[Rfam]
Nucleotides: 134
Base pairs, nucleotide, nucleotide: 001058002057003056004055005054013045014044015043016042017041018040021037022036068127069126070125071124072123073122081115082114083113084112085111086110087109095106096105097104
Number, partner (000 for none) and nucleotide at each position: 001058g002057c003056a004055u005054c006000u007000g008000c009000a010000a011000c012000u013045u014044c015043c016042c017041c018040a019000c020000u021037c022036u023000g024000a025000g026000a027000u028000g029000c030000a031000g032000u033000g034000c035000u036022g037021g038000a039000c040018u041017g042016g043015g044014g045013a046000c047000a048000u049000g050000u051000g052000a053000u054005g055004a056003u057002g058001c059000c060000a061000c062000a063000g064000g065000a066000a067000g068127g069126c070125a071124g072123a073122g074000g075000a076000a077000a078000u079000c080000c081115a082114g083113a084112c085111a086110a087109g088000c089000u090000c091000c092000c093000u094000u095106u096105c097104a098000c099000c100000a101000c102000a103000g104097u105096g106095g107000g108000a109087c110086u111085u112084g113083u114082c115081u116000c117000u118000a119000c120000g121000c122073c123072u124071u125070u126069g127068c128000a129000a130000c131000a132000u133000u134000u

A member of the RNA family "Small nucleolar RNA SNORA55" from Climacteris rufus, 134 nucleotides long. NCBI's taxonomy places the organism under Eukaryota, Deuterostomia, Euteleostomi, Telluraves, Climacteris. Pairs were carried over by alignment from the consensus structure, which was predicted with PFOLD. A search with the family's covariance model found it, with a score of 87 bits. Gene Ontology terms of the family: RNA processing and nucleolus. From the family's description: ACA55 is a member of the H/ACA class of snoRNA that guide the sites of modification of uridines to pseudouridines.